[Rfam]
RNA sequence: AGAAUCAUGUGGAGUGUAUGGGAAUUCUCCUCAUUCUAGGUUAUGCUGUAGUGCAAAAGAAUUCCUGGCUCUUUUCUGUUGCACAGCUGACAUUGCCAUUCUGCUGUUGCUGGAUGGAGUUAAGGAACAUAA
Number, nucleotide and partner (000 for none) at each position: 001a049002g000003a047004a000005u000006c000007a000008u000009g041010u040011g000012g000013a000014g000015u000016g036017u000018a034019u033020g032021g031022g030023a000024a000025u000026u000027c000028u000029c000030c022031u021032c020033a019034u018035u000036c016037u000038a000039g000040g010041u009042u000043a000044u000045g000046c000047u003048g000049u001050a000051g000052u000053g000054c000055a000056a000057a000058a000059g000060a000061a000062u127063u126064c125065c124066u123067g121068g120069c119070u118071c117072u116073u000074u114075u113076c000077u000078g000079u000080u000081g110082c109083a108084c106085a105086g104087c103088u000089g101090a100091c000092a000093u000094u000095g000096c000097c000098a000099u000100u090101c089102u000103g087104c086105u085106g084107u000108u083109g082110c081111u000112g000113g075114a074115u000116g072117g071118a070119g069120u068121u067122a000123a066124g065125g064126a063127a062128c000129a000130u000131a000132a000
RNA: Small nucleolar RNA SNORA46
Organism: Cnephaeus nilssonii